[Rfam]
Shown here is an 88-nucleotide sequence from Nicoletella semolina, a member of the family "sRNA-Xcc1".
It scores 68 bits against the family's covariance model.

RNA sequence: GAUCGGGUGGUGUUCCGUUCAUACAAUACCGAAAGGAAAAGACGGAAGGCUGACUUUGAGCAGUGUUGAAGCACCCGAUCGCCCUAUC
Numbered sequence: 001g002a003u004c005g006g007g008u009g010g011u012g013u014u015c016c017g018u019u020c021a022u023a024c025a026a027u028a029c030c031g032a033a034a035g036g037a038a039a040a041g042a043c044g045g046a047a048g049g050c051u052g053a054c055u056u057u058g059a060g061c062a063g064u065g066u067u068g069a070a071g072c073a074c075c076c077g078a079u080c081g082c083c084c085u086a087u088c
Stems, first nucleotide, its partner, number of pairs: 001080009013047004019042002029036002049064004
Taxonomically the source falls in Nicoletella (Bacteria, Pseudomonadati, Pseudomonadota, Gammaproteobacteria). On this family, see Wengelnik et al., Mol Plant Microbe Interact 1996: "HrpG, a key hrp regulatory protein of Xanthomonas campestris pv. vesicatoria is homologous to two-component response regulators".